[Rfam]
RNA sequence: AAGGCAACUUUUUGCCGAGUGAAUCGAAUAUCGAUAUCUCUCUUUUUCCCAGUUGCCAAAAUCAUUAUGGCUGCUUGAAGAAUACUUAGAUAGGUUAUGAAUUUUUCAAUAUAAUCGAUCUUUUCUUUUGCUGCCACAUUG
Dot-bracket structure: ..(((((((.......(((.((((((.....)))).)).)))........)))))))......((...(((.....(((((.......(((.((((((............)))))).)))...))))).))).....))..